[Rfam]
The family of this 75-nucleotide sequence is "Fibro-purF RNA". The base pairs follow the family's consensus structure, which is taken from published work. It is one of the family's seed sequences.
RNA sequence: GGCCGCUUCCUUGCUUGCACCCGUCUGGGUGGGCUGUGACCUUCGAGGUAGGGGAAGCAUACAUUUCAAAGAGGC
Numbered sequence: 001g002g003c004c005g006c007u008u009c010c011u012u013g014c015u016u017g018c019a020c021c022c023g024u025c026u027g028g029g030u031g032g033g034c035u036g037u038g039a040c041c042u043u044c045g046a047g048g049u050a051g052g053g054g055a056a057g058c059a060u061a062c063a064u065u066u067c068a069a070a071g072a073g074g075c
Stems, first nucleotide, its partner, number of pairs: 005058007018031005039049003